Source information
Shown here is a 368-nucleotide RNA from Dactylosporangium siamense, a member of the family "Bacterial RNase P class A". It is annotated as a ribozyme. It scores 299 bits against the family's covariance model.
RNA sequence: CGAGUCGACCGGGCGGCCGCGUCGGCACCUUCACCGGUGCCGCCGAGGAACGUCCGGGCUCCAGAGGGCAGGGUGGUUGUUAACGGCAACCCGGGGCGACCCGCGGGACAGUGCCACAGAGAACAGACCGCCCGGCCACACGGCCGGGUAAGGGUGAAACGGUGGGGUAAGAGCCCACCAGCGCCCCGGGUGACCGGGGCGGCUAGGUAAACCCCACCCGGAGCAAGGUCAGACGCAGGCGUUCGAGGGCUGCCCGCCCGAGCCUGCGGGUAGACCGCUAGAGCCUGCCGGCAACGGUAGGCCGAGAUGGAUGGCCGCCCCCCGCCCACAGGCGGGGACAGAACCCGGCGUACAGGUCGACUCGUCCG
Number, nucleotide and partner (000 for none) at each position: 001c364002g363003a362004g361005u360006c359007g358008a357009c356010c355011g353012g319013g318014c317015g316016g315017c314018c313019g000020c045021g044022u000023c042024g041025g040026c039027a038028c037029c000030u000031u000032c000033a000034c000035c000036g000037g028038u027039g026040c025041c024042g023043c000044c021045g020046a000047g000048g000049a000050a351051c350052g349053u000054c348055c347056g346057g345058g344059c223060u222061c221062c220063a000064g000065a000066g255067g254068g253069c252070a000071g219072g218073g217074u216075g215076g090077u089078u088079g087080u086081u000082a000083a000084c000085g000086g080087c079088a078089a077090c076091c105092c103093g102094g101095g100096g000097c000098g000099a000100c095101c094102c093103g092104c000105g091106g214107g213108a000109c000110a000111g212112u211113g208114c207115c206116a000117c000118a000119g000120a000121g000122a000123a000124c000125a000126g000127a000128c153129c152130g149131c148132c147133c146134g145135g144136c143137c142138a000139c000140a000141c000142g137143g136144c135145c134146g133147g132148g131149u130150a000151a000152g129153g128154g000155u000156g000157a000158a000159a000160c000161g179162g178163u177164g176165g175166g174167g000168u000169a000170a000171g000172a000173g000174c166175c165176c164177a163178c162179c161180a000181g203182c201183g200184c199185c198186c197187c196188g195189g194190g000191u000192g000193a000194c189195c188196g187197g186198g185199g184200c183201g182202g000203c181204u000205a000206g115207g114208u113209a000210a000211a112212c111213c107214c106215c075216a074217c073218c072219c071220g062221g061222a060223g059224c000225a000226a000227g276228g275229u274230c273231a000232g000233a000234c000235g267236c266237a265238g264239g263240c262241g000242u000243u000244c000245g000246a000247g259248g258249g257250c256251u000252g069253c068254c067255c066256g250257c249258c248259c247260g000261a000262g240263c239264c238265u237266g236267c235268g000269g000270g000271u000272a000273g230274a229275c228276c227277g000278c000279u000280a000281g000282a000283g302284c301285c300286u299287g298288c297289c296290g295291g000292c000293a000294a000295c290296g289297g288298u287299a286300g285301g284302c283303c000304g000305a000306g000307a000308u000309g000310g000311a000312u000313g018314g017315c016316c015317g014318c013319c012320c000321c000322c000323c000324g000325c000326c000327c000328a000329c000330a000331g000332g000333c000334g000335g000336g000337g000338a000339c000340a000341g000342a000343a000344c058345c057346c056347g055348g054349c052350g051351u050352a000353c011354a000355g010356g009357u008358c007359g006360a005361c004362u003363c002364g001365u000366c000367c000368g000

Overview
Rfam links the family to the GO terms tRNA processing, ribonuclease P activity and dimeric ribonuclease P complex.